This 117-nucleotide sequence from Callithrix jacchus belongs to the Rfam family "Small nucleolar RNA SNORA32". By type it is an H/ACA-box small nucleolar RNA. The organism belongs to Callithrix, within Eukaryota.
[Rfam]
RNA sequence: UGGAUGUUACCUAGGCACUUAGCACGCAGUUUCUCGUCUGCUGUGAACAUAAUAGAGAAUUCCUCACUGGGUUUUCUGUCUGCCACCCUGCUAGUGAUCCAUCCACUGGGAACAUCU
Numbered sequence: 001u002g003g004a005u006g007u008u009a010c011c012u013a014g015g016c017a018c019u020u021a022g023c024a025c026g027c028a029g030u031u032u033c034u035c036g037u038c039u040g041c042u043g044u045g046a047a048c049a050u051a052a053u054a055g056a057g058a059a060u061u062c063c064u065c066a067c068u069g070g071g072u073u074u075u076c077u078g079u080c081u082g083c084c085a086c087c088c089u090g091c092u093a094g095u096g097a098u099c100c101a102u103c104c105a106c107u108g109g110g111a112a113c114a115u116c117u
Stems, first nucleotide, its partner, number of pairs: 006050002011045001026041004063110004070103003081096003